Rfam assigns this 130-nucleotide sequence from Mesitornis unicolor to the family "Small nucleolar RNA SNORA24". Pairs were carried over by alignment from the consensus structure, which was predicted with RNAfold. Gene Ontology terms of the family: nucleolus and RNA processing.
RNA sequence: GUCCAUGACUCCAUGGGGGCUGUCGCACGUGGCUGUCUCCCUUCCUAGGCAUGGAAGAGCAGUGCUUGCUAAUUGGCAAAACUUUUACCGUCUUGUGGGUAUGAGUCAUUGACUGUGGCAAGUGACAGGC
Numbered sequence: 001g002u003c004c005a006u007g008a009c010u011c012c013a014u015g016g017g018g019g020c021u022g023u024c025g026c027a028c029g030u031g032g033c034u035g036u037c038u039c040c041c042u043u044c045c046u047a048g049g050c051a052u053g054g055a056a057g058a059g060c061a062g063u064g065c066u067u068g069c070u071a072a073u074u075g076g077c078a079a080a081a082c083u084u085u086u087a088c089c090g091u092c093u094u095g096u097g098g099g100u101a102u103g104a105g106u107c108a109u110u111g112a113c114u115g116u117g118g119c120a121a122g123u124g125a126c127a128g129g130c
Base pairs, nucleotide, nucleotide: 002055003054004053005052006051007050015041016040017039018038020035022033023032024031067127068126070124073121074120075119079114082105083104084103087100088099089098

From the family's description: ACA24 is a member of the H/ACA class of snoRNA that guide the sites of modification of uridines to pseudouridines. Rfam 15.1 lists 852 matches to the family in 501 species.